[Rfam]
RNA sequence: AUUAUUCAUCAAGAGUAAGAUUAAUUUCUUCUCCAACCUGCCAGCUCCGGCAAGGUGGAAAAAUGAUGAGGCAAUCAGCAAUAUAGGAGAAAGG
Numbered sequence: 001a002u003u004a005u006u007c008a009u010c011a012a013g014a015g016u017a018a019g020a021u022u023a024a025u026u027u028c029u030u031c032u033c034c035a036a037c038c039u040g041c042c043a044g045c046u047c048c049g050g051c052a053a054g055g056u057g058g059a060a061a062a063a064u065g066a067u068g069a070g071g072c073a074a075u076c077a078g079c080a081a082u083a084u085a086g087g088a089g090a091a092a093g094g
Base pairs, nucleotide, nucleotide: 006069007068008067009066010065015031017030018029019028020027032059033058034057037055038054039053040051041050042049046089048087071079072078
This 94-nucleotide sequence belongs to the Rfam family "SAM-I/IV (S-adenosyl methionine) riboswitch aptamer". Pairs were carried over by alignment from the consensus structure, which is taken from published work. Rfam's curators put it in the seed alignment.